[Rfam]
The record is a 384-nucleotide RNA sequence from a Nitrospiraceae bacterium, which matches "Bacterial RNase P class A" in Rfam. It scores 298 bits against the family's covariance model. The organism belongs to Nitrospiraceae, within Bacteria.
RNA sequence: GCAAUCGGUCGGACGAUCGCGCAUUGGUAUCUAUAUGAUACCUAUCCGAGGAAAGUCCGGGCUCCAGUGGACAGGCCGCCAGGUAACACCUGGGCACGGACAGCGCGAGCCGCCCGUGACGGAAAGUGCCACAGAAAAAAGACCGCCAUCUUCGGGUGGCAAGGGUGAAACGGUGGGGUAAGAGCCCACCGCGCUCGUGGCAACAUGAGCGGCAGGGCAAACCCCGGCUAGAGCAAGGCCAAAUAUGCGGCGAGAGACUUCCACCUCGAUUAAGACGCCGCGGGUAGGCUGCUAGAGAGCAUGGGUGACCAUGCUCGUAGAGAAAUGAUCGUCCGGACCACGAAAGUGGCCCGACAGAACCCGGCUUAUAGACCGAUUGCCAAC
Numbered sequence: 001g002c003a004a005u006c007g008g009u010c011g012g013a014c015g016a017u018c019g020c021g022c023a024u025u026g027g028u029a030u031c032u033a034u035a036u037g038a039u040a041c042c043u044a045u046c047c048g049a050g051g052a053a054a055g056u057c058c059g060g061g062c063u064c065c066a067g068u069g070g071a072c073a074g075g076c077c078g079c080c081a082g083g084u085a086a087c088a089c090c091u092g093g094g095c096a097c098g099g100a101c102a103g104c105g106c107g108a109g110c111c112g113c114c115c116g117u118g119a120c121g122g123a124a125a126g127u128g129c130c131a132c133a134g135a136a137a138a139a140a141g142a143c144c145g146c147c148a149u150c151u152u153c154g155g156g157u158g159g160c161a162a163g164g165g166u167g168a169a170a171c172g173g174u175g176g177g178g179u180a181a182g183a184g185c186c187c188a189c190c191g192c193g194c195u196c197g198u199g200g201c202a203a204c205a206u207g208a209g210c211g212g213c214a215g216g217g218c219a220a221a222c223c224c225c226g227g228c229u230a231g232a233g234c235a236a237g238g239c240c241a242a243a244u245a246u247g248c249g250g251c252g253a254g255a256g257a258c259u260u261c262c263a264c265c266u267c268g269a270u271u272a273a274g275a276c277g278c279c280g281c282g283g284g285u286a287g288g289c290u291g292c293u294a295g296a297g298a299g300c301a302u303g304g305g306u307g308a309c310c311a312u313g314c315u316c317g318u319a320g321a322g323a324a325a326u327g328a329u330c331g332u333c334c335g336g337a338c339c340a341c342g343a344a345a346g347u348g349g350c351c352c353g354a355c356a357g358a359a360c361c362c363g364g365c366u367u368a369u370a371g372a373c374c375g376a377u378u379g380c381c382a383a384c
Stems, first nucleotide, its partner, number of pairs: 001380010011369001012333007020048002023045002026042005053367003057364005062233003069267002074229005079093005094120001095118004121224002126222002128218003143164002145160006172190006191213001192211008237290004247281006258274003297316008